[Rfam]
RNA sequence: CCCCCGGUCCAGCGCGGCGGGCCAGGCGUGAACCGGGUCAGGUCCGGAAGGAAGCAGCCCUAAGCGCCUCGGUCCGGGCGCCGCUGGGAAGCCGGGGGCGCU
Numbered sequence: 001c002c003c004c005c006g007g008u009c010c011a012g013c014g015c016g017g018c019g020g021g022c023c024a025g026g027c028g029u030g031a032a033c034c035g036g037g038u039c040a041g042g043u044c045c046g047g048a049a050g051g052a053a054g055c056a057g058c059c060c061u062a063a064g065c066g067c068c069u070c071g072g073u074c075c076g077g078g079c080g081c082c083g084c085u086g087g088g089a090a091g092c093c094g095g096g097g098g099c100g101c102u
Stems, first nucleotide, its partner, number of pairs: 004095005009087006015078001018076005024069006035060004043052003